[Rfam]
RNA sequence: UAGAACAAUGUAGGUAAGGGAAGUCGGCAAAUUGGAUCUGUAACUUCGGGAAAAAGAUUGGCUCUGAGGGCUGGGCCAGUCGGGCCGGGGUACGAAGCGGGACUGGGAUGAGCCCGGGCUGGGCGAGGCCGCCCGUCGCUAGUCGACGGGGCCGGCCGAGCUCGGAACGCGGCUUCAACCUUCCCGUGGACUGCCUCAGCUAUGCGGCGGCUCCUCGCGGGUCGUCCGCGUCGGCUGGCAUUCAACAGCCAACUCAGAACUGGUACGGACCAGGGGAAUCCGACUGUCUAAUUAAAACAAAGCAUUGCGACGGCCGUCACCCGGUGUUGACGCAAUGUGAUUUCUGCCCAGUGCUCUGAAUGUCAAAGUGAAGAAAUUCAACCAAGCGCGGGUAAACGGCGGGAGUAACUAUGACUCUCUUAAGGUAGCCAAAUGCCUCGUCAUCUAAUUAGUGACGCGCAUGAAUGGAUUAACGAGAUUCCCACUGUCCCUAUCUACUAUCUAGCGAAACCACAGCCAAGGGAACGGGCUUGGUAGA
Numbered sequence: 001u002a003g004a005a006c007a008a009u010g011u012a013g014g015u016a017a018g019g020g021a022a023g024u025c026g027g028c029a030a031a032u033u034g035g036a037u038c039u040g041u042a043a044c045u046u047c048g049g050g051a052a053a054a055a056g057a058u059u060g061g062c063u064c065u066g067a068g069g070g071c072u073g074g075g076c077c078a079g080u081c082g083g084g085c086c087g088g089g090g091u092a093c094g095a096a097g098c099g100g101g102a103c104u105g106g107g108a109u110g111a112g113c114c115c116g117g118g119c120u121g122g123g124c125g126a127g128g129c130c131g132c133c134c135g136u137c138g139c140u141a142g143u144c145g146a147c148g149g150g151g152c153c154g155g156c157c158g159a160g161c162u163c164g165g166a167a168c169g170c171g172g173c174u175u176c177a178a179c180c181u182u183c184c185c186g187u188g189g190a191c192u193g194c195c196u197c198a199g200c201u202a203u204g205c206g207g208c209g210g211c212u213c214c215u216c217g218c219g220g221g222u223c224g225u226c227c228g229c230g231u232c233g234g235c236u237g238g239c240a241u242u243c244a245a246c247a248g249c250c251a252a253c254u255c256a257g258a259a260c261u262g263g264u265a266c267g268g269a270c271c272a273g274g275g276g277a278a279u280c281c282g283a284c285u286g287u288c289u290a291a292u293u294a295a296a297a298c299a300a301a302g303c304a305u306u307g308c309g310a311c312g313g314c315c316g317u318c319a320c321c322c323g324g325u326g327u328u329g330a331c332g333c334a335a336u337g338u339g340a341u342u343u344c345u346g347c348c349c350a351g352u353g354c355u356c357u358g359a360a361u362g363u364c365a366a367a368g369u370g371a372a373g374a375a376a377u378u379c380a381a382c383c384a385a386g387c388g389c390g391g392g393u394a395a396a397c398g399g400c401g402g403g404a405g406u407a408a409c410u411a412u413g414a415c416u417c418u419c420u421u422a423a424g425g426u427a428g429c430c431a432a433a434u435g436c437c438u439c440g441u442c443a444u445c446u447a448a449u450u451a452g453u454g455a456c457g458c459g460c461a462u463g464a465a466u467g468g469a470u471u472a473a474c475g476a477g478a479u480u481c482c483c484a485c486u487g488u489c490c491c492u493a494u495c496u497a498c499u500a501u502c503u504a505g506c507g508a509a510a511c512c513a514c515a516g517c518c519a520a521g522g523g524a525a526c527g528g529g530c531u532u533g534g535u536a537g538a
Stems, first nucleotide, its partner, number of pairs: 001504004010498007018490003035059005044049001060261002063258006069250005075239009084200002088196004097187004105181003109177004114172001115169002119165006127157005262266001274483007281475002285299003302338008313325004342469003346400003351397002353393004358389001361388003369380004401419006420424001440456005517534005